[Rfam]
Nucleotides: 074
Base pairs, nucleotide, nucleotide: 008066009065010064011063012062013061014060015059017056018055020053021052022051023050024049025048026047027046028045
Number, partner (000 for none) and nucleotide at each position: 001000g002000c003000c004000g005000c006000a007000u008066g009065a010064a011063a012062g013061a014060c015059a016000a017056g018055g019000u020053a021052g022051u023050g024049a025048g026047a027046u028045g029000c030000a031000a032000g033000a034000u035000c036000c037000a038000a039000a040000a041000c042000u043000a044000a045028c046027a047026u048025c049024u050023c051022a052021c053020u054000a055018c056017c057000c058000a059015u060014g061013u062012c063011u064010u065009u066008c067000a068000c069000u070000u071000g072000g073000c074000a